[Rfam]
RNA sequence: UUUUUAAUAAAAUAAAAUUUUCGUAUAACCCCAAUAAUAUGGUUUGGGGGUCUCUACUAGAAACCUAUAAUUUCUAAUUACGAAGAAAAUGUAUAUUUAA
Dot-bracket structure: .................((((((((...((((((.........))))))........((((((.......))))))..))))))))..............
Purine riboswitch aptamer: a 100-nucleotide RNA from Clostridium frigidicarnis. Riboswitches are metabolite binding domains within certain messenger RNAs that serve as precision sensors for their corresponding targets. Allosteric rearrangement of mRNA structure is mediated by ligand binding, and this results in modulation of gene expression. A class of riboswitches that selectively recognises guanine and becomes saturated at concentrations as low as 5 nM. In Bacillus subtilis, this mRNA motif is located on at least five separate transcriptional units that together encode 17 genes that are mostly involved in purine transport and purine nucleotide biosynthesis. The family's consensus secondary structure is taken from published work.